[Rfam]
RNA sequence: GAACUAGUCUCGCUGAAUCUCCAAAUGGAGAACGGGGGAACCAAUACGGUAAGCAGAAUCAGGCUACACUAGAAACUAUUAAGAGUGAUACCGAUCCUUGCUGUAUUUGAUUUCUUUUUUAGGGUCUUUGGGGUGAAUUUAAGGUCAUUGCGCCAUGAGCGAAUGAACUGAGAAAGGGCGACUCUCUGCGUCCUAACCCGACAGCUAACCUCGUAGGCGUCUCAUGAGAGGACAA
Numbered sequence: 001g002a003a004c005u006a007g008u009c010u011c012g013c014u015g016a017a018u019c020u021c022c023a024a025a026u027g028g029a030g031a032a033c034g035g036g037g038g039a040a041c042c043a044a045u046a047c048g049g050u051a052a053g054c055a056g057a058a059u060c061a062g063g064c065u066a067c068a069c070u071a072g073a074a075a076c077u078a079u080u081a082a083g084a085g086u087g088a089u090a091c092c093g094a095u096c097c098u099u100g101c102u103g104u105a106u107u108u109g110a111u112u113u114c115u116u117u118u119u120u121a122g123g124g125u126c127u128u129u130g131g132g133g134u135g136a137a138u139u140u141a142a143g144g145u146c147a148u149u150g151c152g153c154c155a156u157g158a159g160c161g162a163a164u165g166a167a168c169u170g171a172g173a174a175a176g177g178g179c180g181a182c183u184c185u186c187u188g189c190g191u192c193c194u195a196a197c198c199c200g201a202c203a204g205c206u207a208a209c210c211u212c213g214u215a216g217g218c219g220u221c222u223c224a225u226g227a228g229a230g231g232a233c234a235a
Stems, first nucleotide, its partner, number of pairs: 011219004018031003032214006042130002131199003139173002176193004